[Rfam]
RNA sequence: AUCAUGUCUGUUCUAAUACCAUAGAACUUUAUAUUAGCUCUAUGGCUUCGCUUUCAGACAACAUUAAAUUCUUCAAAUUUAUCCUGGUGUGAGAUUUUGAUCAGUAUGCUUUGCACCGGCAUUUUGAGGAUACAAAA
Numbered sequence: 001a002u003c004a005u006g007u008c009u010g011u012u013c014u015a016a017u018a019c020c021a022u023a024g025a026a027c028u029u030u031a032u033a034u035u036a037g038c039u040c041u042a043u044g045g046c047u048u049c050g051c052u053u054u055c056a057g058a059c060a061a062c063a064u065u066a067a068a069u070u071c072u073u074c075a076a077a078u079u080u081a082u083c084c085u086g087g088u089g090u091g092a093g094a095u096u097u098u099g100a101u102c103a104g105u106a107u108g109c110u111u112u113g114c115a116c117c118g119g120c121a122u123u124u125u126g127a128g129g130a131u132a133c134a135a136a137a
Stems, first nucleotide, its partner, number of pairs: 005060006019045007027037002070130007084119006
A member of the RNA family "Small nucleolar RNA psi28S-1192" from Spodoptera littoralis, 137 nucleotides long. Rfam's curators write: psi28S-1192 is a member of the H/ACA class of snoRNA. This family is responsible for guiding the modification of uridine 1192 to pseudouridine in Drosophila 28S rRNA. Rfam links the family to the GO terms RNA processing and nucleolus. Rfam classes the family as an H/ACA-box small nucleolar RNA.